[Rfam]
RNA sequence: GGGUGUCUGAGCCUUUCUGGUUCAGGCAAGACGCAGGUACCAGAAAUGCGAAGACCCCACUUGUUAAUCCAUUAACUCGUGAGGUCUGCAUGAAGUACUUGAACACUACUGAUUGUAGCCUCUUCCUUGCAGAGAGGUCAAAGUUUAUGACGAAAUA
Numbered sequence: 001g002g003g004u005g006u007c008u009g010a011g012c013c014u015u016u017c018u019g020g021u022u023c024a025g026g027c028a029a030g031a032c033g034c035a036g037g038u039a040c041c042a043g044a045a046a047u048g049c050g051a052a053g054a055c056c057c058c059a060c061u062u063g064u065u066a067a068u069c070c071a072u073u074a075a076c077u078c079g080u081g082a083g084g085u086c087u088g089c090a091u092g093a094a095g096u097a098c099u100u101g102a103a104c105a106c107u108a109c110u111g112a113u114u115g116u117a118g119c120c121u122c123u124u125c126c127u128u129g130c131a132g133a134g135a136g137g138u139c140a141a142a143g144u145u146u147a148u149g150a151c152g153a154a155a156u157a
Stems, first nucleotide, its partner, number of pairs: 001058003005055004011049002014046008023037001026034002059080002063076005081122005089115002094110004126149001128147001131144001

Source information:
The family of this 157-nucleotide sequence from Escherichia coli is "sok antitoxin (CssrC)". About the family: Also identified in Shigella as CssrC. The family has 91 seed sequences and 305 matches in Rfam 15.1. The base pairs follow the family's consensus structure, which is taken from published work. For this family Rfam cites "Nucleotide sequence and transcriptional analysis of a third function (Flm) involved in F-plasmid maintenance" (Loh et al., Gene, 1988). The match comes from Rfam's covariance-model search (94 bits). Taxonomically the source falls in Escherichia coli O139:H28 (Bacteria, Pseudomonadati, Gammaproteobacteria, Escherichia). It is annotated as an antitoxin RNA.